[Rfam]
RNA sequence: AAAACAUGCUCUUUUAGUAUUUGUCCAGUCGGUUUUCUCAAGGAGAAAGCCCCC
Numbered sequence: 001a002a003a004a005c006a007u008g009c010u011c012u013u014u015u016a017g018u019a020u021u022u023g024u025c026c027a028g029u030c031g032g033u034u035u036u037c038u039c040a041a042g043g044a045g046a047a048a049g050c051c052c053c054c
Stems, first nucleotide, its partner, number of pairs: 031051008
RNA: U7 small nuclear RNA
Organism: Salmo salar